Source information: A member of the RNA family "Bacterial large subunit ribosomal RNA" from Aureimonas endophytica, 590 nucleotides of a longer RNA.

RNA sequence: AGGCGAUGAAGGACGUGAUACGCUGCGAAAAGCCAUGGGGAGCUGCGAAUAAGCUUUGAUCCGUGGAUAUCCGAAUGGGGCAACCCACCUCUGAUCUCUAGAAAAUCUUUCGGGUUAGGCGGUGCUGAACGAAGAGUUUGGCGCCGGCGAUCGGCAUGGCCGGUUCCGGGCAGGAGCUGGCAACGGACCCUUGGGUCCGCAAGGCCGACCGGCCGUCGCCGCUGAUGCGGCGCGCCCCGCGCAGCCGAGGACCUUUGGUCCGACGGCGUGAGCGGAGAAACCUGAAAGGUUUCUAGAGAUCGACAAAGAGGUAUCUGCACCUGAAUCAAAUAGGGUGACAGAAGCGAACGCGGGGAACUGAAACAUCUAAGUACCCGCAGGAAAGGACAUCAACCGAGACUCCGUCAGUAGCGGCGAGCGAACGCGGACCAGGCCAGUGGUCGUUGGAAAGAGAAGCCGAACACGUUGGAAAGCGUGGCGAGAAGGGUGACAGCCCCGUAGGCGUAGAGGUUCUGACGAUCCUUGAGUAGGGCGGGACACGAGACAUCCUGUCUGAACAUGGGGGGACCACCCUCCAAGCCUAAGUACUC
Numbered sequence: 001a002g003g004c005g006a007u008g009a010a011g012g013a014c015g016u017g018a019u020a021c022g023c024u025g026c027g028a029a030a031a032g033c034c035a036u037g038g039g040g041a042g043c044u045g046c047g048a049a050u051a052a053g054c055u056u057u058g059a060u061c062c063g064u065g066g067a068u069a070u071c072c073g074a075a076u077g078g079g080g081c082a083a084c085c086c087a088c089c090u091c092u093g094a095u096c097u098c099u100a101g102a103a104a105a106u107c108u109u110u111c112g113g114g115u116u117a118g119g120c121g122g123u124g125c126u127g128a129a130c131g132a133a134g135a136g137u138u139u140g141g142c143g144c145c146g147g148c149g150a151u152c153g154g155c156a157u158g159g160c161c162g163g164u165u166c167c168g169g170g171c172a173g174g175a176g177c178u179g180g181c182a183a184c185g186g187a188c189c190c191u192u193g194g195g196u197c198c199g200c201a202a203g204g205c206c207g208a209c210c211g212g213c214c215g216u217c218g219c220c221g222c223u224g225a226u227g228c229g230g231c232g233c234g235c236c237c238c239g240c241g242c243a244g245c246c247g248a249g250g251a252c253c254u255u256u257g258g259u260c261c262g263a264c265g266g267c268g269u270g271a272g273c274g275g276a277g278a279a280a281c282c283u284g285a286a287a288g289g290u291u292u293c294u295a296g297a298g299a300u301c302g303a304c305a306a307a308g309a310g311g312u313a314u315c316u317g318c319a320c321c322u323g324a325a326u327c328a329a330a331u332a333g334g335g336u337g338a339c340a341g342a343a344g345c346g347a348a349c350g351c352g353g354g355g356a357a358c359u360g361a362a363a364c365a366u367c368u369a370a371g372u373a374c375c376c377g378c379a380g381g382a383a384a385g386g387a388c389a390u391c392a393a394c395c396g397a398g399a400c401u402c403c404g405u406c407a408g409u410a411g412c413g414g415c416g417a418g419c420g421a422a423c424g425c426g427g428a429c430c431a432g433g434c435c436a437g438u439g440g441u442c443g444u445u446g447g448a449a450a451g452a453g454a455a456g457c458c459g460a461a462c463a464c465g466u467u468g469g470a471a472a473g474c475g476u477g478g479c480g481a482g483a484a485g486g487g488u489g490a491c492a493g494c495c496c497c498g499u500a501g502g503c504g505u506a507g508a509g510g511u512u513c514u515g516a517c518g519a520u521c522c523u524u525g526a527g528u529a530g531g532g533c534g535g536g537a538c539a540c541g542a543g544a545c546a547u548c549c550u551g552u553c554u555g556a557a558c559a560u561g562g563g564g565g566g567a568c569c570a571c572c573c574u575c576c577a578a579g580c581c582u583a584a585g586u587a588c589u590c
Stems, first nucleotide, its partner, number of pairs: 001589002003345002011072003014027003033066007042054003077086003087312006314342004318337005349380001350378005360367002390397002400585001401428005411419002431582004446523002456503003462477005485497003530554008561576005